The family of this 82-nucleotide RNA from Pomacea canaliculata is "mir-981 microRNA precursor family". A search with the family's covariance model found it, with a score of 62 bits. The family has 17 seed sequences and 180 matches in Rfam 15.1. The literature on the family includes a 2010 paper in BMC Genomics by Legeai et al., "Bioinformatic prediction, deep sequencing of microRNAs and expression analysis during phenotypic plasticity in the pea aphid, Acyrthosiphon pisum". Lineage of the source: Eukaryota > Metazoa > Protostomia > Ampullarioidea > Pomacea.

[Rfam]
RNA sequence: CAGACUUUGUUCCGGGUUUCGCGGCUUGCGAACAGUCAUUUUGAGCUGUGUUCGUUGUCGUCGAAACCUGCCCUGAAAUCUG
Numbered sequence: 001c002a003g004a005c006u007u008u009g010u011u012c013c014g015g016g017u018u019u020c021g022c023g024g025c026u027u028g029c030g031a032a033c034a035g036u037c038a039u040u041u042u043g044a045g046c047u048g049u050g051u052u053c054g055u056u057g058u059c060g061u062c063g064a065a066a067c068c069u070g071c072c073c074u075g076a077a078a079u080c081u082g
Stems, first nucleotide, its partner, number of pairs: 001082004006077001013070009030053005